[Rfam]
RNA sequence: UAAUGAAAAUGAAAAAAGGAACUGCGUCAACAGUCCCUUUUGACAGCACCGCUAAAGACGGUGACAAGUUUAAUAGUUAGAUCAAA
Numbered sequence: 001u002a003a004u005g006a007a008a009a010u011g012a013a014a015a016a017a018g019g020a021a022c023u024g025c026g027u028c029a030a031c032a033g034u035c036c037c038u039u040u041u042g043a044c045a046g047c048a049c050c051g052c053u054a055a056a057g058a059c060g061g062u063g064a065c066a067a068g069u070u071u072a073a074u075a076g077u078u079a080g081a082u083c084a085a086a
Stems, first nucleotide, its partner, number of pairs: 021034004048062004053057001
Dot-bracket structure: ....................((((......)))).............((((.(...).))))........................
RNA: RNA anti-toxin A